[Rfam]
RNA sequence: GGGCGUGUGGCCUAGCGGACAGGGCGAGAGGUUCCUAACCUCUCGAUCGCGGGUUCGAAUCCCGCCACGCCCG
Numbered sequence: 001g002g003g004c005g006u007g008u009g010g011c012c013u014a015g016c017g018g019a020c021a022g023g024g025c026g027a028g029a030g031g032u033u034c035c036u037a038a039c040c041u042c043u044c045g046a047u048c049g050c051g052g053g054u055u056c057g058a059a060u061c062c063c064g065c066c067a068c069g070c071c072c073g
Base pairs, nucleotide, nucleotide: 001072002071003070004069005068006067007066010025011024012023013022027043028042029041030040031039049065050064051063052062053061
Dot-bracket structure: (((((((..((((........)))).(((((.......))))).....(((((.......)))))))))))).